[Rfam]
RNA sequence: CCCAUGGUUGCACCAUGGGCUGACAUAGGUCGGGGCUUUGCCCCU
Number, nucleotide and partner (000 for none) at each position: 001c019002c018003c017004a016005u015006g014007g013008u012009u000010g000011c000012a008013c007014c006015a005016u004017g003018g002019g001020c000021u000022g000023a000024c000025a000026u000027a000028g000029g000030u000031c000032g044033g043034g042035g041036c040037u000038u000039u000040g036041c035042c034043c033044c032045u000
RNA: Acido-Lenti-1 RNA
Organism: Lentimonas sp. CC11